[Rfam]
RNA sequence: UAUCCCCUUUUCACUUUGCCAGUUGGACUUAUGUCUUUGUUGGUCACUCAAGUGGGGCCAAGGAAAUAUCCUUUUAAAAUGCAGGCAAACUGGUGUCUUGUAUCCUGUCAAAGGAAACAAAU
Dot-bracket structure: ................................((((...((((....))))...))))..........((((((.......((((((......))))).).........)))))).......